[Rfam]
The record is a 308-nucleotide sequence from Methanomassiliicoccaceae archaeon DOK, which matches "Archaeal signal recognition particle RNA" in Rfam. It is annotated as a non-coding RNA gene. A reference for the family is Rosenblad et al. (2009), "Kinship in the SRP RNA family", RNA Biol. NCBI's taxonomy places the organism under Archaea, Methanobacteriati, Thermoplasmatota, Methanomassiliicoccales, Methanomassiliicoccaceae.
RNA sequence: UGUCUGGCUUGGCCGGGGCGCUUGGCGUGCCCUACACCCGAAAUCGUCAAUACGCGGGGGCGACAGCAGGGGACGGCCCCGCUGAACACACAAGCCCAUCUAGCAACGAUGAAACUUUGUCCUGUAGAGUCGGAGUUUGUGACGAAUACGACCGGAGGGUCGCAGUUCACACAUCAAUCGGGGGAACCGGGUCAGGUCCUGACGGGAGCAGCCUUACUCUGAACUACUGACGUUUACGGGGUCGCAGGGUCGAGAAGCGAAAUGGUCAACUUGUGUCGGGAUGUGAGGUCAACCCCUGUGGCCAGGCU
Dot-bracket structure: .(((((((((.((((((((((.....)))))))...((((..............))))))).)...((((((..((((.(((..(.((((((((.((((.(.((..(......((((((((((((((((((((((..((((..((.(.(((((....))))).).))..))))....((((((.....((((....(((....)))....))))..)))))).)).))))).))))))))...)))))))...)..)).).)))).)...))))))...).)))).))))..)))))).)))))))).